c-di-AMP riboswitch aptamer (ydaO/yuaA leader): a 140-nucleotide RNA from Paenibacillus durus. Rfam links the family to the GO terms regulation of gene expression and cyclic-di-AMP binding. The match comes from Rfam's covariance-model search (66 bits).
[Rfam]
Nucleotides: 140
Stems, first nucleotide, its partner, number of pairs: 012124003018034007035120003039116002046051001053105003061082006085099002
Number, partner (000 for none) and nucleotide at each position: 001000g002000u003000g004000c005000a006000c007000a008000a009000c010000a011000a012124g013123c014122c015000a016000a017000a018034u019033c020032c021031c022030c023029g024028g025000g026000c027000a028024c029023c030022g031021g032020g033019g034018a035120g036119c037118g038000g039116g040115g041000g042000a043000a044000c045000c046051a047000u048000u049000u050000u051046u052000u053105g054104g055103g056000u057000g058000a059000a060000u061082u062081g063080a064079u065078c066077u067000a068000g069000c070000a071000g072000c073000a074000a075000a076000g077066a078065g079064a080063u081062c082061a083000u084000a085099g086098g087000g088000a089000a090000c091000c092000u093000u094000c095000a096000a097000a098086c099085c100000g101000a102000a103055u104054c105053c106000u107000u108000a109000a110000g111000c112000u113000a114000a115040c116039c117000a118037c119036g120035c121000a122014g123013g124012c125000a126000u127000u128000g129000g130000a131000a132000g133000g134000a135000g136000a137000a138000c139000a140000u